RNA sequence: UGAUUGCGUUAGGGAUUGCAGUGGAAAUCCUUUUGUUUUUCCUUUAAAAACAAAAGAUUGCAACGGAAAGCCCGACCCUUG
Numbered sequence: 001u002g003a004u005u006g007c008g009u010u011a012g013g014g015a016u017u018g019c020a021g022u023g024g025a026a027a028u029c030c031u032u033u034u035g036u037u038u039u040u041c042c043u044u045u046a047a048a049a050a051c052a053a054a055a056g057a058u059u060g061c062a063a064c065g066g067a068a069a070g071c072c073c074g075a076c077c078c079u080u081g
Base pairs, nucleotide, nucleotide: 012073013072014071016069017068021064022063026059027058028057029056032054033053034052035051036050037049038048039047
The record is an 81-nucleotide RNA sequence from Flavobacterium sp. GT3R68, which matches "Flavo-1 RNA" in Rfam. The source organism's lineage runs through Bacteria, Pseudomonadati, Bacteroidota, Flavobacteriaceae and Flavobacterium.